[Rfam]
RNA sequence: GAUAAACAAAGUGAGAAACUUUGUCACCGAAAAUCUAAGGUUUCCUGAGCAAUGUUAAUCAUCUCAGGGUUAGUCGGGUCCUAAGGCGAGGUCGAAAGGCGUAGUCGAUGGAAAACAGGUUAAUAUUCCUGUACCGGCUUGAAGAGGUUAUUACCUAUGGGGUGACGCAGAAGUGAAAGGCGAGCCAUCUGACGGCUUAGAUGGUUUAAGUACGUAGGCUGAAAUGCAGGUAAAUCCGCAUUUCGUUAGGCUGAAAUACGAAUAGGGUGUCCGUAAGGACCAUAACUCGCCCUAAUCAGGCUGCCGAGAAAAACCUCUAUGGGACGAUUCAAGUCGCCCGUACCGCAAACCGACACAGGUAGAUGGGAUGAGUAUUCUAAGGUGCU
Dot-bracket structure: .....((((((.......))))))((((....((((..((...((((((...((.....)).))))))......((((.((...(((.(.(((....))).).)))...))...(((((........)))))..(((((((((..........((...(((((...((((..(.....(((((((((((..........))))))(...(((....(((.(((((((.((.....))))))))).....)))....)))....)..((((((....)))).))...))))).....)...))))........)))))...)).....)))))))))))))..)).....((......)).)))).(((.......)))..))))..
RNA: Bacterial large subunit ribosomal RNA, nucleotides 1276 to 1661